[Rfam]
RNA: Vibrio RNA AS7
Organism: Photobacterium jeanii
RNA sequence: GGAGUUUGUAGCAAUAAUUUUUGGCGAUCUUGAAUGUCACCACCAAUGUGGUAAGGCAAACCACAGUUGGCAAAUGAAACAAACUCACCGCGUUCGAACAUGAUAAUUUGAGCAUCUUCGCUUAAACGACGCGCUCGUGCUGCGGCUGAUGCUCCACCUGCAACGCCCC
Numbered sequence: 001g002g003a004g005u006u007u008g009u010a011g012c013a014a015u016a017a018u019u020u021u022u023g024g025c026g027a028u029c030u031u032g033a034a035u036g037u038c039a040c041c042a043c044c045a046a047u048g049u050g051g052u053a054a055g056g057c058a059a060a061c062c063a064c065a066g067u068u069g070g071c072a073a074a075u076g077a078a079a080c081a082a083a084c085u086c087a088c089c090g091c092g093u094u095c096g097a098a099c100a101u102g103a104u105a106a107u108u109u110g111a112g113c114a115u116c117u118u119c120g121c122u123u124a125a126a127c128g129a130c131g132c133g134c135u136c137g138u139g140c141u142g143c144g145g146c147u148g149a150u151g152c153u154c155c156a157c158c159u160g161c162a163a164c165g166c167c168c169c
Stems, first nucleotide, its partner, number of pairs: 001167002004164003008161003011025002014022001016020001035053006061070002076154002086144001088142001092140002095137002099133001101131002104128001107125002110123004